Rfam assigns this 146-nucleotide RNA from Anaerobacillus arseniciselenatis to the family "c-di-AMP riboswitch aptamer (ydaO/yuaA leader)". The match comes from Rfam's covariance-model search (98 bits). The base pairs follow the family's consensus structure. From the family's description: This family represents a conserved RNA structure found upstream of the ydaO and yuaA genes in Bacillus subtilis and related genes in other bacteria.
RNA sequence: ACCUAUAAAUCGCUGAAUCAUUUUUGAGCGGGGGAACCAUUUUGAUAGUUUACUAACUAUCAUGGGGUGAAUCUUACAUAUGUAAGAGGGGAUACUCUCAGUCCCUAAUCCGACAGCUAACCUCGUAAGCGUUACUUGAAGAGAGG
Numbered sequence: 001a002c003c004u005a006u007a008a009a010u011c012g013c014u015g016a017a018u019c020a021u022u023u024u025u026g027a028g029c030g031g032g033g034g035a036a037c038c039a040u041u042u043u044g045a046u047a048g049u050u051u052a053c054u055a056a057c058u059a060u061c062a063u064g065g066g067g068u069g070a071a072u073c074u075u076a077c078a079u080a081u082g083u084a085a086g087a088g089g090g091g092a093u094a095c096u097c098u099c100a101g102u103c104c105c106u107a108a109u110c111c112g113a114c115a116g117c118u119a120a121c122c123u124c125g126u127a128a129g130c131g132u133u134a135c136u137u138g139a140a141g142a143g144a145g146g
Stems, first nucleotide, its partner, number of pairs: 011131004018027003028126006038064002065111003073086004089105004